Shown here is a 336-nucleotide part of an RNA from Pseudoxanthobacter soli, a member of the family "Bacterial large subunit ribosomal RNA".
The organism belongs to Pseudoxanthobacter soli, within Bacteria.
The family's consensus secondary structure is taken from published work.
The match comes from Rfam's covariance-model search (2710 bits).

RNA sequence: UGAGAGAACGAUGCUGAAGGAACUCGGCAAUUUACCUCCGUAACUUCGGGAUAAGGAGGCCUCCUUCGUGGGCAACCAUGGGGGAGGGGCACAGACCAGGGGGUGGCGACUGUUUAGCAAAAACACAGGGCUCUGCGAAGUCGCAAGACGACGUAUAGGGUCUGACGCCUGCCCGGUGCCGGAAGGUUAAGAGGAGGGGUGCAAGCUCUGAAUCGAAGCCCCGGUAAACGGCGGCCGUAACUAUAACGGUCCUAAGGUAGCGAAAUUCCUUGUCGGGUAAGUUCCGACCUGCACGAAUGGCGUAACGACUUCCCCGCUGUCUCCAGCAUCGACUCA
Numbered sequence: 001u002g003a004g005a006g007a008a009c010g011a012u013g014c015u016g017a018a019g020g021a022a023c024u025c026g027g028c029a030a031u032u033u034a035c036c037u038c039c040g041u042a043a044c045u046u047c048g049g050g051a052u053a054a055g056g057a058g059g060c061c062u063c064c065u066u067c068g069u070g071g072g073c074a075a076c077c078a079u080g081g082g083g084g085a086g087g088g089g090c091a092c093a094g095a096c097c098a099g100g101g102g103g104u105g106g107c108g109a110c111u112g113u114u115u116a117g118c119a120a121a122a123a124c125a126c127a128g129g130g131c132u133c134u135g136c137g138a139a140g141u142c143g144c145a146a147g148a149c150g151a152c153g154u155a156u157a158g159g160g161u162c163u164g165a166c167g168c169c170u171g172c173c174c175g176g177u178g179c180c181g182g183a184a185g186g187u188u189a190a191g192a193g194g195a196g197g198g199g200u201g202c203a204a205g206c207u208c209u210g211a212a213u214c215g216a217a218g219c220c221c222c223g224g225u226a227a228a229c230g231g232c233g234g235c236c237g238u239a240a241c242u243a244u245a246a247c248g249g250u251c252c253u254a255a256g257g258u259a260g261c262g263a264a265a266u267u268c269c270u271u272g273u274c275g276g277g278u279a280a281g282u283u284c285c286g287a288c289c290u291g292c293a294c295g296a297a298u299g300g301c302g303u304a305a306c307g308a309c310u311u312c313c314c315c316g317c318u319g320u321c322u323c324c325a326g327c328a329u330c331g332a333c334u335c336a
Stems, first nucleotide, its partner, number of pairs: 001336004009331008018322003035059005044049001060087012088092001100315004105310002107307002111125003128163008136153001140149003166302004171232003176229002178225005185220003191214002196209005233251006252256001262289001272288006